[Rfam]
RNA sequence: CUUGAGGUAAAAAGUGGCUAGCCGGCUUGGGGAAAAAGAGAUCAACCAUUAGGAUAAAUUAUUUUUUCUUCUUUUUACCCCAAAUUUUUUUUACCGUGGGUAUAAAGAAUCUUCUUGGGGUUUAAAAAGAACCAAAUUUAGAUUUAGCUCAAGGGUUGAUAAUGUAUUUUCCCACAACAAGGCUGGUCACUAUUUGCCCCAAG
Numbered sequence: 001c002u003u004g005a006g007g008u009a010a011a012a013a014g015u016g017g018c019u020a021g022c023c024g025g026c027u028u029g030g031g032g033a034a035a036a037a038g039a040g041a042u043c044a045a046c047c048a049u050u051a052g053g054a055u056a057a058a059u060u061a062u063u064u065u066u067u068c069u070u071c072u073u074u075u076u077a078c079c080c081c082a083a084a085u086u087u088u089u090u091u092u093a094c095c096g097u098g099g100g101u102a103u104a105a106a107g108a109a110u111c112u113u114c115u116u117g118g119g120g121u122u123u124a125a126a127a128a129g130a131a132c133c134a135a136a137u138u139u140a141g142a143u144u145u146a147g148c149u150c151a152a153g154g155g156u157u158g159a160u161a162a163u164g165u166a167u168u169u170u171c172c173c174a175c176a177a178c179a180a181g182g183c184u185g186g187u188c189a190c191u192a193u194u195u196g197c198c199c200c201a202a203g
Stems, first nucleotide, its partner, number of pairs: 003201002006198006013191011027177003030173006041163002044160001045156003049152002052149002055146004059141003064136003069131007077121007087107004092102004

Overview:
MIR2670 microRNA precursor family: a 203-nucleotide RNA sequence from Medicago truncatula. A search with the family's covariance model found it, with a score of 145 bits.